[Rfam]
RNA sequence: GGCCCGGGCUGGCGAACAACCAGCGAUGGGGACGGGGGAACCGUUUCAUGGGUCGCGACCCUGAUCGCGGCCCUCGGGGUGAGUCCCGCUCGGCGCGGGUAGGGCGUCUCCAGCCCGAACCCGACAGCUAACCUCGGCGGCCAUAGGAGAGGAAUA
Numbered sequence: 001g002g003c004c005c006g007g008g009c010u011g012g013c014g015a016a017c018a019a020c021c022a023g024c025g026a027u028g029g030g031g032a033c034g035g036g037g038g039a040a041c042c043g044u045u046u047c048a049u050g051g052g053u054c055g056c057g058a059c060c061c062u063g064a065u066c067g068c069g070g071c072c073c074u075c076g077g078g079g080u081g082a083g084u085c086c087c088g089c090u091c092g093g094c095g096c097g098g099g100u101a102g103g104g105c106g107u108c109u110c111c112a113g114c115c116c117g118a119a120c121c122c123g124a125c126a127g128c129u130a131a132c133c134u135c136g137g138c139g140g141c142c143a144u145a146g147g148a149g150a151g152g153a154a155u156a
Base pairs, nucleotide, nucleotide: 001142002141003140004139009030010029033136034135035134036133037132042076043075077122078121079120085099086098087097088096102116103115104114105113

Shown here is a 156-nucleotide RNA sequence from Actinomyces gaoshouyii, a member of the family "c-di-AMP riboswitch aptamer (ydaO/yuaA leader)". The pairing is the family consensus, mapped onto this sequence. The organism belongs to Actinomyces, within Bacteria.